[Rfam]
A member of the RNA family "terC RNA" from Methylobacterium sp. WL8, 58 nucleotides long. It is annotated as a cis-regulatory element. The organism belongs to Methylobacterium, within Bacteria. Pairs were carried over by alignment from the consensus structure, which is taken from published work.
RNA sequence: UUCCGGGUCCGGGCCCCUCUGGCGGUCGAGGCGUCGACCGCGAUGUCGGAUCUCUGCC
Numbered sequence: 001u002u003c004c005g006g007g008u009c010c011g012g013g014c015c016c017c018u019c020u021g022g023c024g025g026u027c028g029a030g031g032c033g034u035c036g037a038c039c040g041c042g043a044u045g046u047c048g049g050a051u052c053u054c055u056g057c058c
Stems, first nucleotide, its partner, number of pairs: 006052007022041008